[Rfam]
RNA sequence: AGCACUUGUGUUUGUUUUGCUUACCUGUGGACAAAAGCCUUAUAGACAAUUGCAAAAAAUACAUUCUCUUGCAAGCCAGAAUUCAUUGUUCAGGGUGCGUUUUGAUACAUAUGAUAGAAAAUU
Dot-bracket structure: .(((.((((.(..((((((.....(...)..)))))..)....).)))).)))..........((((.(((.....((((((.(((........))).)))))).......))).))))....
Numbered sequence: 001a002g003c004a005c006u007u008g009u010g011u012u013u014g015u016u017u018u019g020c021u022u023a024c025c026u027g028u029g030g031a032c033a034a035a036a037g038c039c040u041u042a043u044a045g046a047c048a049a050u051u052g053c054a055a056a057a058a059a060u061a062c063a064u065u066c067u068c069u070u071g072c073a074a075g076c077c078a079g080a081a082u083u084c085a086u087u088g089u090u091c092a093g094g095g096u097g098c099g100u101u102u103u104g105a106u107a108c109a110u111a112u113g114a115u116a117g118a119a120a121a122u123u
Stems, first nucleotide, its partner, number of pairs: 002053003006049004011044001014039001015036005025029001064119004069114003077104006084097003
Overview
Shown here is a 123-nucleotide RNA from Castor canadensis, a member of the family "Small nucleolar RNA SNORA40". The source organism's lineage runs through Eukaryota, Opisthokonta, Bilateria, Vertebrata and Castor. On this family, see Ofengand and Bakin, J Mol Biol 1997: "Mapping to nucleotide resolution of pseudouridine residues in large subunit ribosomal RNAs from representative eukaryotes, prokaryotes, archaebacteria, mitochondria and chloroplasts". Rfam links the family to the GO terms RNA processing and nucleolus. The snoRNA ACA 40 belongs to the H/ACA family of snoRNAs and guides the pseudouridylation of 28S rRNA subunit at position U4565. NB This family has a high threshold value to exclude a large number of closely related sequences that do not appear to have conserved H and ACA boxes, and may be pseudogenes. The family's consensus secondary structure was predicted with RNAalifold.